[Rfam]
RNA: traJ-II RNA
Organism: Hydrogenophaga crassostreae
RNA sequence: AGGCAGGAUAGGUGAAGUGGGCCCACCCGCGAGCGUGUGUUCCGACUUCACUCCCCUUAUUCGCGCUGCGCGCUCAACAGGUCUCCUGCUCUGCGAGGCU
Dot-bracket structure: .(((((((...((((((..((..(((.((....)).)))..))..))))))...(((.....((((...)))).....)))..)))))))..........